[Rfam]
Rfam assigns this 324-nucleotide RNA from Mus musculus to the family "7SK RNA". NCBI's taxonomy places the organism under Eukaryota, Eumetazoa, Euteleostomi, Myomorpha, Mus. 7SK was discovered as an abundant small nuclear RNA in the mid-70s but a possible function has only recently been suggested. The family's RNA type in Rfam is non-coding RNA gene. Its Rfam clan is "7SK clan".

RNA sequence: GGAUAUGAGGGUGAUCUGGCUGUGGCAUUUGUCACCCCAUUAAUCACCAAAGUUGAUUGGCUGAUCUGGCUGGCUAGGUGGGUGUCCCCUUCCUCCCUCACCGUUCCAUGUGCAUCCCUCCCAAAGCUGUGCACUCUGUCAAAGAGGACUGCCUUCCCCGAAAGGACCAGUCUUCGGUCAAGGGUUAUACCAGUAGCUGCGCUCCCCUGCUAUAACCUCCAACCAAGCUCUCAAGGUCCACUCUAGGAGGACGUAGGGUAGUCAAGCUUCCAGACUCCAGACACAUCCACAUGAGGCGCUGCAUGUGGCAGUCUGCCUUUCUUU
Number, nucleotide and partner (000 for none) at each position: 001g107002g106003a105004u000005a000006u100007g099008a098009g097010g096011g095012u000013g092014a091015u000016c000017u000018g089019g088020c000021u000022g000023u000024g086025g085026c084027a083028u082029u081030u080031g079032u078033c077034a000035c073036c072037c069038c068039a067040u000041u000042a000043a065044u064045c063046a000047c060048c059049a000050a000051a000052g000053u000054u000055g000056a000057u000058u000059g048060g047061c000062u000063g045064a044065u043066c000067u039068g038069g037070c000071u000072g036073g035074c000075u000076a000077g033078g032079u031080g030081g029082g028083u027084g026085u025086c024087c000088c019089c018090u000091u014092c013093c000094u000095c011096c010097c009098u008099c007100a006101c000102c000103g000104u000105u003106c002107c001108a000109u000110g000111u000112g000113c000114a000115u165116c164117c000118c000119u163120c000121c138122c000123a000124a135125a000126g134127c000128u000129g000130u000131g000132c000133a000134c126135u124136c000137u000138g121139u161140c160141a000142a000143a000144g000145a000146g157147g156148a155149c000150u000151g000152c000153c000154u000155u148156c147157c146158c000159c000160g140161a139162a000163a119164g116165g115166a000167c000168c000169a000170g000171u000172c000173u000174u000175c000176g000177g000178u000179c000180a000181a000182g000183g000184g000185u000186u000187a000188u000189a000190c000191c000192a000193g000194u000195a000196g267197c266198u265199g000200c000201g000202c261203u260204c000205c258206c257207c256208u255209g254210c253211u000212a000213u000214a000215a000216c000217c249218u248219c247220c246221a000222a000223c000224c000225a000226a242227g241228c000229u000230c000231u000232c000233a000234a000235g000236g000237u000238c000239c000240a000241c227242u226243c000244u000245a000246g220247g219248a218249g217250g000251a000252c000253g210254u209255a208256g207257g206258g205259u000260a203261g202262u000263c000264a000265a198266g197267c196268u000269u000270c000271c000272a000273g000274a000275c000276u000277c000278c000279a000280g000281a000282c000283a000284c000285a000286u000287c000288c000289a324290c000291a322292u000293g319294a318295g317296g316297c315298g312299c311300u310301g309302c308303a000304u000305g000306u000307g000308g302309c301310a300311g299312u298313c000314u000315g297316c296317c295318u294319u293320u000321c000322u291323u000324u289